About this RNA: Caenorhabditis snoRNA ceN104: a 154-nucleotide RNA. Rfam 15.1 lists 21 matches to the family in 10 species. For this family Rfam cites "Systematic identification of non-coding RNA 2,2,7-trimethylguanosine cap structures in Caenorhabditis elegans" (Jia et al., BMC Mol Biol, 2007). Its family is annotated with RNA processing and nucleolus in the Gene Ontology.
RNA sequence: ACGCAGUUAUCCCCACUGAAACGUUCGAAGUUUCGGUAGCCUUUUGGAGUCGCCAAAUUCGGAAGGUGCUGGAAACUGCAAUAUGAGCAAUGCUCGAGAUGCGUGUGCUGGUUUGCCUCAAUGCGAUCUGGUUCCUUUUCUCCUCGACACAAUU
Number, nucleotide and partner (000 for none) at each position: 001a000002c000003g079004c078005a077006g076007u075008u074009a000010u000011c000012c000013c000014c000015a000016c000017u035018g034019a000020a032021a031022c030023g000024u000025u000026c000027g000028a000029a000030g022031u021032u020033u000034c018035g017036g000037u000038a000039g067040c066041c065042u064043u000044u062045u061046g060047g059048a058049g000050u000051c000052g000053c000054c000055a000056a000057a000058u048059u047060c046061g045062g044063a000064a042065g041066g040067u039068g000069c000070u000071g000072g000073a000074a008075a007076c006077u005078g004079c003080a000081a000082u000083a000084u000085g000086a000087g000088c000089a000090a000091u000092g000093c000094u147095c146096g145097a144098g143099a000100u000101g140102c000103g000104u000105g000106u000107g132108c131109u130110g129111g128112u000113u126114u125115g124116c123117c000118u000119c000120a000121a000122u000123g116124c115125g114126a113127u000128c111129u110130g109131g108132u107133u000134c000135c000136u000137u000138u000139u000140c101141u000142c000143c098144u097145c096146g095147a094148c000149a000150c000151a000152a000153u000154u000